[Rfam]
RNA sequence: UCUUUGAAGACACCCCACCAUCACUGACUUUCAACAGCUCGACGCAAGUCGGGCUGUU
Numbered sequence: 001u002c003u004u005u006g007a008a009g010a011c012a013c014c015c016c017a018c019c020a021u022c023a024c025u026g027a028c029u030u031u032c033a034a035c036a037g038c039u040c041g042a043c044g045c046a047a048g049u050c051g052g053g054c055u056g057u058u
Stems, first nucleotide, its partner, number of pairs: 035056009
Shown here is a 58-nucleotide RNA from Caulobacter sp., a member of the family "Caulobacter sRNA CC0196". The family's RNA type in Rfam is small RNA. Pairs were carried over by alignment from the consensus structure, which was predicted with RNAalifold.